[Rfam]
Nucleotides: 068
Base pairs, nucleotide, nucleotide: 004063005062006061008059012029013028015027016026017025035056036055037054038053040052041051042050043049044048
Number, partner (000 for none) and nucleotide at each position: 001000a002000g003000u004063u005062u006061g007000a008059c009000c010000g011000g012029g013028u014000c015027g016026a017025c018000g019000g020000c021000g022000c023000g024000g025017g026016u027015c028013a029012c030000g031000g032000u033000c034000a035056g036055g037054u038053a039000g040052u041051c042050g043049c044048g045000g046000a047000u048044c049043g050042c051041g052040g053038u054037g055036c056035c057000g058000u059008g060000g061006c062005g063004a064000u065000c066000c067000u068000c
ASdes TB sRNA: a 68-nucleotide sequence from Nonomuraea sp. C10. The match comes from Rfam's covariance-model search (77 bits). By type it is a small RNA. For this family Rfam cites "Identification of small RNAs in Mycobacterium tuberculosis" (Arnvig and Young, Mol Microbiol, 2009). The family's consensus secondary structure is taken from published work.